Description:
A member of the RNA family "Bacterial large subunit ribosomal RNA" from Krasilnikoviella flava, 230 nucleotides of a longer RNA. The match comes from Rfam's covariance-model search (2766 bits). The base pairs follow the family's consensus structure, which is taken from published work.
[Rfam]
RNA sequence: GAGUUAGUGCUCGGUGGCGAGGUUAACCCGUGUGGGGAAGCCGUAGCGAAAGCGAGUCCGAAUAGGGCGAUUCAGUCGCCGGGUCUAGACCCGAAGCGAAGUGAUCUAGCCAUGGGCAGGUUGAAGCGCCGGUAAGACGGCGUGGAGGACCGAACCCACUUAGGUUGAAAACUGAGGGGAUGACCUGUGGUUAGGGGUGAAAGGCCAAUCAAACUUCGUGAUAGCUGGUU
Numbered sequence: 001g002a003g004u005u006a007g008u009g010c011u012c013g014g015u016g017g018c019g020a021g022g023u024u025a026a027c028c029c030g031u032g033u034g035g036g037g038a039a040g041c042c043g044u045a046g047c048g049a050a051a052g053c054g055a056g057u058c059c060g061a062a063u064a065g066g067g068c069g070a071u072u073c074a075g076u077c078g079c080c081g082g083g084u085c086u087a088g089a090c091c092c093g094a095a096g097c098g099a100a101g102u103g104a105u106c107u108a109g110c111c112a113u114g115g116g117c118a119g120g121u122u123g124a125a126g127c128g129c130c131g132g133u134a135a136g137a138c139g140g141c142g143u144g145g146a147g148g149a150c151c152g153a154a155c156c157c158a159c160u161u162a163g164g165u166u167g168a169a170a171a172c173u174g175a176g177g178g179g180a181u182g183a184c185c186u187g188u189g190g191u192u193a194g195g196g197g198u199g200a201a202a203g204g205c206c207a208a209u210c211a212a213a214c215u216u217c218g219u220g221a222u223a224g225c226u227g228g229u230u
Base pairs, nucleotide, nucleotide: 005087006086007085009084010083011082012081013080014079015078016077017076018075021042022041023040024039027036028035029034046053047052056068057067058066059065090228091227093225097218098217099216100215101214102213106194107193108192109191110190111189112188113187114186115185116184117182119151120150121149122148126143127142128141129140130139131138155179156178157177159176160175161174162173163172196206197205198204